[Rfam]
RNA sequence: GUUGAGAGGAAUAUUGUCUGGCUCGAGGUCAUGAAGAAGAUCGGUAGAUUGAUUCAUUUUAAAGAGUGAAAUCCCUAAAUGAUUCUCGGACCAGGCUUCAUUCCCCCCAAC
Numbered sequence: 001g002u003u004g005a006g007a008g009g010a011a012u013a014u015u016g017u018c019u020g021g022c023u024c025g026a027g028g029u030c031a032u033g034a035a036g037a038a039g040a041u042c043g044g045u046a047g048a049u050u051g052a053u054u055c056a057u058u059u060u061a062a063a064g065a066g067u068g069a070a071a072u073c074c075c076u077a078a079a080u081g082a083u084u085c086u087c088g089g090a091c092c093a094g095g096c097u098u099c100a101u102u103c104c105c106c107c108c109a110a111c
Base pairs, nucleotide, nucleotide: 001111002110003109004108006106008104009103010102011101012100016096017095018094019093020092021091024088025087026086

The record is a 111-nucleotide RNA sequence, which matches "mir-166 microRNA precursor family" in Rfam.
Rfam's curators put it in the seed alignment.
The family's consensus secondary structure was predicted with PFOLD.
From the family's description: This family represents the plant microRNA (miRNA) precursor mir-166.
For this family Rfam cites "MicroRNAs in plants" (Reinhart et al., Genes Dev, 2002).